[Rfam]
RNA sequence: UCCGCCGCGAGACGGAAUCUGAAGGAAGCUGGAUGCGGGGAACAUACUAACCCACGGGCAAAUCUCCGGUCUGACGUACAGAAAUCUCAUACGAGGUUAUGCAUGAGGGUAAGGAUGCUAUACAAGUCGAAGCCCGAUAACUACACGGAAUCAUGCAUGAUAAAUGAGGCAGAUGGAUGGAGAGGAAGAAACGUGUG
Numbered sequence: 001u002c003c004g005c006c007g008c009g010a011g012a013c014g015g016a017a018u019c020u021g022a023a024g025g026a027a028g029c030u031g032g033a034u035g036c037g038g039g040g041a042a043c044a045u046a047c048u049a050a051c052c053c054a055c056g057g058g059c060a061a062a063u064c065u066c067c068g069g070u071c072u073g074a075c076g077u078a079c080a081g082a083a084a085u086c087u088c089a090u091a092c093g094a095g096g097u098u099a100u101g102c103a104u105g106a107g108g109g110u111a112a113g114g115a116u117g118c119u120a121u122a123c124a125a126g127u128c129g130a131a132g133c134c135c136g137a138u139a140a141c142u143a144c145a146c147g148g149a150a151u152c153a154u155g156c157a158u159g160a161u162a163a164a165u166g167a168g169g170c171a172g173a174u175g176g177a178u179g180g181a182g183a184g185g186a187a188g189a190a191a192c193g194u195g196u197g
Stems, first nucleotide, its partner, number of pairs: 001016004006011001051197001053195003059188001063183006069174005085169006096161003100157007107135004113128002116125001
Dot-bracket structure: ((((.(....).))))..................................(.(((...(...(((((((((((...........((((((.....(((.(((((((((((..((.(........).))...))))...............))))))).)))..)))))))))))...))))))....)....))).)
The record is a 197-nucleotide RNA from Butyrivibrio sp. Su6, which matches "Group II catalytic intron D1-D4-3" in Rfam. Lineage of the source: Bacteria > Bacillati > Clostridia > Lachnospiraceae > Butyrivibrio. Rfam's curators write: Group II introns are found in rRNA, tRNA and mRNA of organelles in fungi, plants and protists, and also in mRNA in bacteria. The match comes from Rfam's covariance-model search (129 bits).